[Rfam]
RNA sequence: CAGGCGGUAUUCCAAGGAAGCUGCACUGGUAAACUCGCAGAUUGAACCGUGUCAAUGAUUGGUGUUGCACACUCUGCUCUGAGCCGUAGGGACCGAGACAGAAGG
Numbered sequence: 001c002a003g004g005c006g007g008u009a010u011u012c013c014a015a016g017g018a019a020g021c022u023g024c025a026c027u028g029g030u031a032a033a034c035u036c037g038c039a040g041a042u043u044g045a046a047c048c049g050u051g052u053c054a055a056u057g058a059u060u061g062g063u064g065u066u067g068c069a070c071a072c073u074c075u076g077c078u079c080u081g082a083g084c085c086g087u088a089g090g091g092a093c094c095g096a097g098a099c100a101g102a103a104g105g
Stems, first nucleotide, its partner, number of pairs: 001028003004024005010019002074101003077097003081093001084091002
The family of this 105-nucleotide RNA sequence from Paenibacillus paeoniae is "pan motif". The organism belongs to Paenibacillus, within Bacteria. A search with the family's covariance model found it, with a score of 38 bits.